RNA sequence: CUUCCCAUUUAUUUGCUGCUAUCGUCUCUCGGUGAUAUGAGCAGUUAUACGCAUGGGAUACAGUAUUAUUGGGCCAUUGCUAGCUGAGAUGAAGUAACUGUGUCUUCUCUUCUGCGUGGCCUGGACACCG
Numbered sequence: 001c002u003u004c005c006c007a008u009u010u011a012u013u014u015g016c017u018g019c020u021a022u023c024g025u026c027u028c029u030c031g032g033u034g035a036u037a038u039g040a041g042c043a044g045u046u047a048u049a050c051g052c053a054u055g056g057g058a059u060a061c062a063g064u065a066u067u068a069u070u071g072g073g074c075c076a077u078u079g080c081u082a083g084c085u086g087a088g089a090u091g092a093a094g095u096a097a098c099u100g101u102g103u104c105u106u107c108u109c110u111u112c113u114g115c116g117u118g119g120c121c122u123g124g125a126c127a128c129c130g
Stems, first nucleotide, its partner, number of pairs: 003058006015045006022037001025035002069124008078116003086109004091104002094101002

Shown here is a 130-nucleotide RNA from Fukomys damarensis, a member of the family "Small nucleolar RNA SNORA20". It is annotated as an H/ACA-box small nucleolar RNA. ACA20 is a member of the H/ACA class of snoRNA that guide the sites of modification of uridines to pseudouridines. Pairs were carried over by alignment from the consensus structure, which was predicted with ILM. Lineage of the source: Eukaryota > Bilateria > Craniata > Euarchontoglires > Fukomys. Its Rfam clan is "SNORA20 clan". The match comes from Rfam's covariance-model search (98 bits).